[Rfam]
RNA sequence: GGCUCUGUGAUUGCUUCGCCUUAUUGGCAAUAUACGCUAUUCUGAAAUCAGAGUAUGAAAGAUAAACAAACUGUACUUUAUGAGAGCC
Numbered sequence: 001g002g003c004u005c006u007g008u009g010a011u012u013g014c015u016u017c018g019c020c021u022u023a024u025u026g027g028c029a030a031u032a033u034a035c036g037c038u039a040u041u042c043u044g045a046a047a048u049c050a051g052a053g054u055a056u057g058a059a060a061g062a063u064a065a066a067c068a069a070a071c072u073g074u075a076c077u078u079u080a081u082g083a084g085a086g087c088c
Base pairs, nucleotide, nucleotide: 001088002087003086004085005084
Rfam assigns this 88-nucleotide sequence to the family "Small nucleolar RNA U54". Pairs were carried over by alignment from the consensus structure, which was predicted with PFOLD. It is one of the family's seed sequences. Clan: U54 clan. From the family's description: U54 is a C/D box small nucleolar RNA, which acts as a methylation guide for 18S ribosomal RNA in plants. Rfam 15.1 lists 614 matches to the family in 206 species.